[Rfam]
RNA sequence: GUUGUCGGAUUCACCUCAAUCCACAUGUGUUGGAGUGGAUUGGGGUAGAAUUUAGUUCAAGUUCUACUCCAAUCCAUCCUAACACAUGUGGAUUGAUAUGAAUCCAAGG
Numbered sequence: 001g002u003u004g005u006c007g008g009a010u011u012c013a014c015c016u017c018a019a020u021c022c023a024c025a026u027g028u029g030u031u032g033g034a035g036u037g038g039a040u041u042g043g044g045g046u047a048g049a050a051u052u053u054a055g056u057u058c059a060a061g062u063u064c065u066a067c068u069c070c071a072a073u074c075c076a077u078c079c080u081a082a083c084a085c086a087u088g089u090g091g092a093u094u095g096a097u098a099u100g101a102a103u104c105c106a107a108g109g
Stems, first nucleotide, its partner, number of pairs: 005107001007105007016096017035077009045067003
Dot-bracket structure: ....(.(((((((..(((((((((((((((((..(((((((((.(((.................))).)))))))))..)))))))))))))))))..))))))).)..
The family of this 109-nucleotide RNA sequence from Sorghum bicolor is "MIR5565 microRNA precursor family".